Shown here is a 108-nucleotide sequence from Halalkalibacter akibai, a member of the family "Glycine riboswitch aptamer". The source organism's lineage runs through Bacteria, Bacillati, Bacilli, Bacillaceae and Halalkalibacter akibai. Rfam describes the family as follows. This family represents the bacterial glycine riboswitch.

RNA sequence: AUGAGAAUAAAGGGAGAGAUUGCAGGUUUUUGCAACGCCGAAGGAGCAAGUAUGCGAUAUUGUGUUAUCAAAUACGAAUCUCUCAGGCAAAAAGACUUUUAUUUGACG
Dot-bracket structure: .....((((((((......((((........)))).(((((..(((...((((..................))))....))))).))).......)))))))).....